Rfam assigns this 101-nucleotide RNA sequence from Candidatus Accumulibacter regalis to the family "Glycine riboswitch aptamer". Clan: Glycine riboswitch clan. The organism belongs to Candidatus Accumulibacter, within Bacteria.
RNA sequence: CUCUGGAGAGCGGCGCGCGCCUGUCGGUGCAGCGCCCACCGAUGGGGCGUGCGGCGGCGACCACCUUGCCACCGCAAAAUCUCUCAGGUACAUGGACAGGG
Numbered sequence: 001c002u003c004u005g006g007a008g009a010g011c012g013g014c015g016c017g018c019g020c021c022u023g024u025c026g027g028u029g030c031a032g033c034g035c036c037c038a039c040c041g042a043u044g045g046g047g048c049g050u051g052c053g054g055c056g057g058c059g060a061c062c063a064c065c066u067u068g069c070c071a072c073c074g075c076a077a078a079a080u081c082u083c084u085c086a087g088g089u090a091c092a093u094g095g096a097c098a099g100g101g
Stems, first nucleotide, its partner, number of pairs: 001101005012036004038089003041085002045083003050076005